[Rfam]
RNA sequence: GGGAUAUGAUGAACAACAUUGGUCCGUGUUUCUGAUCAUUUGUGAAGAGAAACAAUACUCCAAUAUUCUGAUCCC
Numbered sequence: 001g002g003g004a005u006a007u008g009a010u011g012a013a014c015a016a017c018a019u020u021g022g023u024c025c026g027u028g029u030u031u032c033u034g035a036u037c038a039u040u041u042g043u044g045a046a047g048a049g050a051a052a053c054a055a056u057a058c059u060c061c062a063a064u065a066u067u068c069u070g071a072u073c074c075c
Base pairs, nucleotide, nucleotide: 001075002074003073004072
Dot-bracket structure: ((((...................................................................))))